This 132-nucleotide sequence from Vitis vinifera belongs to the Rfam family "MIR845_2 microRNA precursor family". Rfam links the family to the GO terms RISC complex and miRNA-mediated post-transcriptional gene silencing. The literature on the family includes a 2007 paper in Nature by Jaillon et al., "The grapevine genome sequence suggests ancestral hexaploidization in major angiosperm phyla".

RNA sequence: AGAAUGCACAUUGAUUAUCCUUGGAGCCAUAGAAUAAACAAAACACCUUACAAAACCAAGUUAGCACAUCUUAGAAUGGUUCUCACAGGCUUACUAACCUAUGUCUUUGAUUCUAGUUGAUGGGAAAAUCCU
Numbered sequence: 001a002g003a004a005u006g007c008a009c010a011u012u013g014a015u016u017a018u019c020c021u022u023g024g025a026g027c028c029a030u031a032g033a034a035u036a037a038a039c040a041a042a043a044c045a046c047c048u049u050a051c052a053a054a055a056c057c058a059a060g061u062u063a064g065c066a067c068a069u070c071u072u073a074g075a076a077u078g079g080u081u082c083u084c085a086c087a088g089g090c091u092u093a094c095u096a097a098c099c100u101a102u103g104u105c106u107u108u109g110a111u112u113c114u115a116g117u118u119g120a121u122g123g124g125a126a127a128a129u130c131c132u
Stems, first nucleotide, its partner, number of pairs: 009122008022109005028103005049087001054081002057078002061074004